[Rfam]
Nucleotides: 075
Base pairs, nucleotide, nucleotide: 002073003072004071005070011064016060017059018058020056021055022054023053024052025051026050027049028048029047030046
Number, partner (000 for none) and nucleotide at each position: 001000c002073u003072a004071c005070a006000u007000c008000c009000a010000c011064c012000c013000u014000g015000u016060a017059g018058a019000u020056c021055c022054g023053a024052a025051u026050u027049u028048g029047u030046u031000u032000g033000a034000a035000u036000u037000u038000a039000u040000a041000u042000u043000a044000a045000u046030a047029a048028c049027a050026a051025a052024u053023u054022c055021g056020g057000u058018u059017c060016u061000a062000g063000a064011g065000a066000g067000g068000u069000u070005u071004g072003u073002g074000u075000g
Rfam assigns this 75-nucleotide RNA sequence from Anopheles gambiae to the family "mir-10 microRNA precursor family". Rfam links the family to the GO terms RISC complex and miRNA-mediated post-transcriptional gene silencing. It scores 62 bits against the family's covariance model. Lineage of the source: Eukaryota > Metazoa > Eumetazoa > Anopheles > Anopheles gambiae.